[Rfam]
RNA: STnc490 Hfq binding RNA
RNA sequence: AACCCCCGGUUCGACCGGGGGUUCCAAAAAGCUUUAGCUAUGAGCAAGUUUUUUUUACCUCCUUUUGAUAAAAUUAAAUUGGUUCGCCAACCAAAACUAAUUAAUCAAAAGG
Numbered sequence: 001a002a003c004c005c006c007c008g009g010u011u012c013g014a015c016c017g018g019g020g021g022u023u024c025c026a027a028a029a030a031g032c033u034u035u036a037g038c039u040a041u042g043a044g045c046a047a048g049u050u051u052u053u054u055u056u057a058c059c060u061c062c063u064u065u066u067g068a069u070a071a072a073a074u075u076a077a078a079u080u081g082g083u084u085c086g087c088c089a090a091c092c093a094a095a096a097c098u099a100a101u102u103a104a105u106c107a108a109a110a111g112g
Stems, first nucleotide, its partner, number of pairs: 001023010028041001030039003061112009073101003077098001079096002081092003